[Rfam]
Shown here is a 90-nucleotide RNA from Conexibacter arvalis, a member of the family "tRNA". The family's consensus secondary structure is taken from published work. The family's RNA type in Rfam is transfer RNA. It scores 59 bits against the family's covariance model.

RNA sequence: GGAGGGGUGGCAGAGCGGUUGAAUGCGGCGGUCUCGAAAACCGUUAUAGGCCGGACAGGUCUAUCGAGGGUUCGAAUCCCUCCCCCUCCG
Numbered sequence: 001g002g003a004g005g006g007g008u009g010g011c012a013g014a015g016c017g018g019u020u021g022a023a024u025g026c027g028g029c030g031g032u033c034u035c036g037a038a039a040a041c042c043g044u045u046a047u048a049g050g051c052c053g054g055a056c057a058g059g060u061c062u063a064u065c066g067a068g069g070g071u072u073c074g075a076a077u078c079c080c081u082c083c084c085c086c087u088c089c090g
Stems, first nucleotide, its partner, number of pairs: 001089007010026003028044005066082005